This 85-nucleotide sequence from Medicago truncatula belongs to the Rfam family "MIR2617 microRNA precursor family".
[Rfam]
RNA sequence: AUGACGUGUAGCAUGCUCGUUAUGUGGAAUUACUCUGAUGUAUAUAUGCUAUUUAAUUGCUUUUGGGUAACGGGGUGUUACAACA
Numbered sequence: 001a002u003g004a005c006g007u008g009u010a011g012c013a014u015g016c017u018c019g020u021u022a023u024g025u026g027g028a029a030u031u032a033c034u035c036u037g038a039u040g041u042a043u044a045u046a047u048g049c050u051a052u053u054u055a056a057u058u059g060c061u062u063u064u065g066g067g068u069a070a071c072g073g074g075g076u077g078u079u080a081c082a083a084c085a
Stems, first nucleotide, its partner, number of pairs: 002085002007082008016074006

The base pairs follow the family's consensus structure, which was predicted with RNAalifold. Gene Ontology terms of the family: RISC complex and miRNA-mediated post-transcriptional gene silencing. The organism belongs to Medicago, within Eukaryota.